[Rfam]
RNA sequence: AUACCAUGUUAUGGGCAGCUUGCACAUAACUUCUUAAACCGCUCCCAAUAAUCGUAAAGGGACUCAGCUUCUUUUUGCCUUAUUCCAUAGAUCUCUCUUCUUAGAUU
Numbered sequence: 001a002u003a004c005c006a007u008g009u010u011a012u013g014g015g016c017a018g019c020u021u022g023c024a025c026a027u028a029a030c031u032u033c034u035u036a037a038a039c040c041g042c043u044c045c046c047a048a049u050a051a052u053c054g055u056a057a058a059g060g061g062a063c064u065c066a067g068c069u070u071c072u073u074u075u076u077g078c079c080u081u082a083u084u085c086c087a088u089a090g091a092u093c094u095c096u097c098u099u100c101u102u103a104g105a106u107u
Stems, first nucleotide, its partner, number of pairs: 001107001004104001006101001057074002060071001
Background: This 107-nucleotide RNA from Gossypium trilobum belongs to the Rfam family "Plant small nucleolar RNA R71". A search with the family's covariance model found it, with a score of 42 bits. A reference for the family is Brown et al. (2003), "Plant snoRNAs: functional evolution and new modes of gene expression", Trends Plant Sci. Gene Ontology terms of the family: nucleolus and RNA processing. The base pairs follow the family's consensus structure, which was predicted with PFOLD.